[Rfam]
RNA: RAGATH-11 RNA
Organism: Brachionus plicatilis
RNA sequence: UUAAAAAAAAGGUUGAUACGCUUGGUUUGUGGUUUCAAGCUAGUCUAAAUAGUUGCCGAGUUCGCAGCCAUUAAGUGCUCGGAUGAGUGGCGCUGUUUAUGAUGAACGUCCCAUAUGUA
Numbered sequence: 001u002u003a004a005a006a007a008a009a010a011g012g013u014u015g016a017u018a019c020g021c022u023u024g025g026u027u028u029g030u031g032g033u034u035u036c037a038a039g040c041u042a043g044u045c046u047a048a049a050u051a052g053u054u055g056c057c058g059a060g061u062u063c064g065c066a067g068c069c070a071u072u073a074a075g076u077g078c079u080c081g082g083a084u085g086a087g088u089g090g091c092g093c094u095g096u097u098u099a100u101g102a103u104g105a106a107c108g109u110c111c112c113a114u115a116u117g118u119a
Stems, first nucleotide, its partner, number of pairs: 001016004020040006029114004043103003046099003055091004060084002066079003